Notes: A member of the RNA family "c-di-GMP-I riboswitch aptamer" from Peribacillus muralis, 91 nucleotides long. GEMM was predicted in a large-scale screen for bacterial structured RNA regulatory elements. A search with the family's covariance model found it, with a score of 79 bits.
RNA sequence: AUUAUAUAAGGGCAAAUUUUAUGAAAAUAAAAGACGCAAAGCCACGGGCCUAAAACAACGACUUGGUUGUCAUGGCAGCCGGGCCGCCAAG
Numbered sequence: 001a002u003u004a005u006a007u008a009a010g011g012g013c014a015a016a017u018u019u020u021a022u023g024a025a026a027a028u029a030a031a032a033g034a035c036g037c038a039a040a041g042c043c044a045c046g047g048g049c050c051u052a053a054a055a056c057a058a059c060g061a062c063u064u065g066g067u068u069g070u071c072a073u074g075g076c077a078g079c080c081g082g083g084c085c086g087c088c089a090a091g
Stems, first nucleotide, its partner, number of pairs: 012037002017032006041084003045081003048076003055070004